[Rfam]
RNA sequence: AUCGCUGUUCUCUCGGAUUCGCUUGGUGCAGGUCGGGAACGGUCUGCCGCCGUACGAUCAGAUCAGGUUCCGAUCAGAUUCGAUCCUGUCCGUCCAUUGGGCGGCUCAGUUCCCGCCGUGCAUCAAGUGAAUUCGAGAGUGUCCGGCGAAA
Numbered sequence: 001a002u003c004g005c006u007g008u009u010c011u012c013u014c015g016g017a018u019u020c021g022c023u024u025g026g027u028g029c030a031g032g033u034c035g036g037g038a039a040c041g042g043u044c045u046g047c048c049g050c051c052g053u054a055c056g057a058u059c060a061g062a063u064c065a066g067g068u069u070c071c072g073a074u075c076a077g078a079u080u081c082g083a084u085c086c087u088g089u090c091c092g093u094c095c096a097u098u099g100g101g102c103g104g105c106u107c108a109g110u111u112c113c114c115g116c117c118g119u120g121c122a123u124c125a126a127g128u129g130a131a132u133u134c135g136a137g138a139g140u141g142u143c144c145g146g147c148g149a150a151a
Base pairs, nucleotide, nucleotide: 013136014135017132018131019130020129023126024125025124026123027122028121029120030119032117034115035114036113037112038111040109
MIR168 microRNA precursor family: a 151-nucleotide RNA from Asparagus officinalis. A reference for the family is Reinhart et al. (2002), "MicroRNAs in plants", Genes Dev. The organism belongs to Asparagus, within Eukaryota.